[Rfam]
RNA sequence: GCGUCGUACACGGGAGUCCGGUGAGCCGGGCUGAGAGGAAGCUACUCCAAGCUUCGACCGUCGAACCUGAUCUGGAUCAUGCCAGCGCAGGGAGGGAUAUCGGAUGUCAU
Number, nucleotide and partner (000 for none) at each position: 001g000002c000003g000004u000005c000006g098007u097008a000009c095010a000011c060012g059013g058014g000015a000016g031017u030018c029019c028020g027021g000022u000023g000024a000025g000026c000027c020028g019029g018030g017031c016032u000033g000034a000035g000036a000037g000038g055039a054040a053041g052042c051043u000044a000045c000046u000047c000048c000049a000050a000051g042052c041053u040054u039055c038056g000057a000058c013059c012060g011061u000062c000063g000064a000065a000066c091067c090068u089069g088070a000071u000072c085073u084074g083075g082076a000077u000078c000079a000080u000081g000082c075083c074084a073085g072086c000087g000088c069089a068090g067091g066092g000093a000094g000095g009096g000097a007098u006099a000100u000101c000102g000103g000104a000105u000106g000107u000108c000109a000110u000

The family of this 110-nucleotide RNA sequence from Homoserinimonas aerilata is "TPP riboswitch aptamer (THI element)". The source organism's lineage runs through Bacteria, Actinomycetes, Micrococcales, Microbacteriaceae and Homoserinimonas. The base pairs follow the family's consensus structure, which is taken from published work.